The family of this 93-nucleotide RNA from Kwoniella shandongensis is "tRNA". By type it is a transfer RNA. The organism belongs to Kwoniella, within Eukaryota. The family's consensus secondary structure is taken from published work. It scores 50 bits against the family's covariance model.
RNA sequence: GGGCCGGUGUUGCAGUGGUAGCAUUCUAGACUUCGAGGUCGUGAAAACUGGAGUUUCAUCUAGCGGUCGCGGGUUCAAAUCCCGUCCGGCCUU
Numbered sequence: 001g002g003g004c005c006g007g008u009g010u011u012g013c014a015g016u017g018g019u020a021g022c023a024u025u026c027u028a029g030a031c032u033u034c035g036a037g038g039u040c041g042u043g044a045a046a047a048c049u050g051g052a053g054u055u056u057c058a059u060c061u062a063g064c065g066g067u068c069g070c071g072g073g074u075u076c077a078a079a080u081c082c083c084g085u086c087c088g089g090c091c092u093u
Stems, first nucleotide, its partner, number of pairs: 001092007011023003026063005069085005